The family of this 61-nucleotide RNA from Sarcophilus harrisii is "mir-7398 microRNA precursor family". The family's consensus secondary structure was predicted with RNAalifold. The family has 23 seed sequences and 132 matches in Rfam 15.1. Lineage of the source: Eukaryota > Craniata > Teleostomi > Amniota > Sarcophilus.
RNA sequence: UGUGUAGAGGUGAGGAAAUAUACCGUGUUGUCUCUCCAGGUAAAUCCUUACCUCUCUCAGU
Numbered sequence: 001u002g003u004g005u006a007g008a009g010g011u012g013a014g015g016a017a018a019u020a021u022a023c024c025g026u027g028u029u030g031u032c033u034c035u036c037c038a039g040g041u042a043a044a045u046c047c048u049u050a051c052c053u054c055u056c057u058c059a060g061u
Stems, first nucleotide, its partner, number of pairs: 002058001004056001006055006013049003017045001022041003